Small nucleolar RNA SNORD87: an 85-nucleotide RNA from Nannospalax galili. The source organism's lineage runs through Eukaryota, Euteleostomi, Rodentia, Spalacinae and Nannospalax. A reference for the family is Gogolevskaya et al. (2002), "U87 RNA, a novel C/D box small nucleolar RNA from mammalian cells", Gene. The base pairs follow the family's consensus structure. The family's RNA type in Rfam is C/D-box small nucleolar RNA.
RNA sequence: AUUAGCACAAUGACGACCUAAAUUUUUGCCAUUUACCCAACUGAGGACUUCUUUGACGAAGUAAUCUUAAAACUGAAGUGCCAGU
Numbered sequence: 001a002u003u004a005g006c007a008c009a010a011u012g013a014c015g016a017c018c019u020a021a022a023u024u025u026u027u028g029c030c031a032u033u034u035a036c037c038c039a040a041c042u043g044a045g046g047a048c049u050u051c052u053u054u055g056a057c058g059a060a061g062u063a064a065u066c067u068u069a070a071a072a073c074u075g076a077a078g079u080g081c082c083a084g085u
Stems, first nucleotide, its partner, number of pairs: 001085003005081003